[Rfam]
About this RNA:
This 74-nucleotide RNA sequence from Setaria digitata belongs to the Rfam family "mir-236 microRNA precursor family". It scores 74 bits against the family's covariance model. Pairs were carried over by alignment from the consensus structure, which was predicted with RNAalifold.
Nucleotides: 074
Stems, first nucleotide, its partner, number of pairs: 001074003005070001007068004011063007020055002023052007
Number, partner (000 for none) and nucleotide at each position: 001074g002073g003072c004000u005070a006000c007068c008067g009066u010065c011063u012062u013061a014060c015059c016058u017057g018000u019000a020055c021054a022000a023052u024051a025050u026049u027048a028047g029046a030000g031000u032000a033000a034000c035000a036000a037000a038000u039000g040000a041000a042000a043000u044000c045000a046029u047028c048027u049026a050025a051024u052023a053000c054021u055020g056000u057017c058016a059015g060014g061013u062012a063011a064000u065010g066009a067008c068007g069000a070005u071000c072003g073002c074001c
NCBI's taxonomy places the organism under Eukaryota, Bilateria, Nematoda, Filarioidea, Setaria.